Background: Rfam assigns this 218-nucleotide RNA sequence from Metabacillus sediminilitoris to the family "Bacillus sRNA ncr1575".
RNA sequence: AAAUACAAUGAUGAGAGGACUGAUGGAUGGACAAUGAUUAACUAAUCUAUAUUUUUAUUUGAAAUGAAUAACUUCAAACUACAAAAUAUAGGAUUAGUCUAUCCAUUUUUAUAAAUCAAUUUACACUUUAUUUGUCAUGAUUCCAAUGGCAAAAAAGCACCUUAUUUACUAUAAGUGAAAGACUAAUCCUUCCAAUUACAAAUUGGGAGGAUUUUUUU
Numbered sequence: 001a002a003a004u005a006c007a008a009u010g011a012u013g014a015g016a017g018g019a020c021u022g023a024u025g026g027a028u029g030g031a032c033a034a035u036g037a038u039u040a041a042c043u044a045a046u047c048u049a050u051a052u053u054u055u056u057a058u059u060u061g062a063a064a065u066g067a068a069u070a071a072c073u074u075c076a077a078a079c080u081a082c083a084a085a086a087u088a089u090a091g092g093a094u095u096a097g098u099c100u101a102u103c104c105a106u107u108u109u110u111a112u113a114a115a116u117c118a119a120u121u122u123a124c125a126c127u128u129u130a131u132u133u134g135u136c137a138u139g140a141u142u143c144c145a146a147u148g149g150c151a152a153a154a155a156a157g158c159a160c161c162u163u164a165u166u167u168a169c170u171a172u173a174a175g176u177g178a179a180a181g182a183c184u185a186a187u188c189c190u191u192c193c194a195a196u197u198a199c200a201a202a203u204u205g206g207g208a209g210g211a212u213u214u215u216u217u218u
Stems, first nucleotide, its partner, number of pairs: 016110003024105004030099003043096006049089006058078006065071001118165001126157004131152001185213011
The source organism's lineage runs through Bacteria, Bacillota, Bacilli, Bacillaceae and Metabacillus. A search with the family's covariance model found it, with a score of 160 bits.